[Rfam]
RNA: transfer-messenger RNA
RNA sequence: GGGGUCGACUGGUUUUGACAGCGAGACUCAUUGGAUGGUAAGCACGUCGUGUAAUGACUUUGAGACACGUAAAAGGCUAGGUCAACUUUUUAAUCGGCGAGAAUAACUACGCUUUAGCUGCAUAAUCUGAAUUACAGUAAGAUUAAGCUAGUUCCUACUAGGUAGGAAAGCUAAAUGUCUCCGGAAAGCCUUGGUUAAUGGCGUUCUAUUUGAGGCAUCGAAAAAAUUGACUAAGGCAGCAUAGCGCUUCGAUGUGCUGUCGAGAUCAAGGAGCUAAGUUGCAGGUAGGUUGUCUUUUGCCAGCCUGCAAUCGAAAACCCAAUGAAAGACUAAACGUGAAGAAAGCUCUUCAAUAGCUUGUUUGGACGAGGGUUCGAAUCCCUCCGACUCCACUG
Numbered sequence: 001g002g003g004g005u006c007g008a009c010u011g012g013u014u015u016u017g018a019c020a021g022c023g024a025g026a027c028u029c030a031u032u033g034g035a036u037g038g039u040a041a042g043c044a045c046g047u048c049g050u051g052u053a054a055u056g057a058c059u060u061u062g063a064g065a066c067a068c069g070u071a072a073a074a075g076g077c078u079a080g081g082u083c084a085a086c087u088u089u090u091u092a093a094u095c096g097g098c099g100a101g102a103a104u105a106a107c108u109a110c111g112c113u114u115u116a117g118c119u120g121c122a123u124a125a126u127c128u129g130a131a132u133u134a135c136a137g138u139a140a141g142a143u144u145a146a147g148c149u150a151g152u153u154c155c156u157a158c159u160a161g162g163u164a165g166g167a168a169a170g171c172u173a174a175a176u177g178u179c180u181c182c183g184g185a186a187a188g189c190c191u192u193g194g195u196u197a198a199u200g201g202c203g204u205u206c207u208a209u210u211u212g213a214g215g216c217a218u219c220g221a222a223a224a225a226a227u228u229g230a231c232u233a234a235g236g237c238a239g240c241a242u243a244g245c246g247c248u249u250c251g252a253u254g255u256g257c258u259g260u261c262g263a264g265a266u267c268a269a270g271g272a273g274c275u276a277a278g279u280u281g282c283a284g285g286u287a288g289g290u291u292g293u294c295u296u297u298u299g300c301c302a303g304c305c306u307g308c309a310a311u312c313g314a315a316a317a318c319c320c321a322a323u324g325a326a327a328g329a330c331u332a333a334a335c336g337u338g339a340a341g342a343a344a345g346c347u348c349u350u351c352a353a354u355a356g357c358u359u360g361u362u363u364g365g366a367c368g369a370g371g372g373u374u375c376g377a378a379u380c381c382c383u384c385c386g387a388c389u390c391c392a393c394u395g
Stems, first nucleotide, its partner, number of pairs: 001391007019364003024359002027356002031353005037347003043338005048069005055084006176217006183207004188202003194231004235261009246274005278311009288301003292330007368384005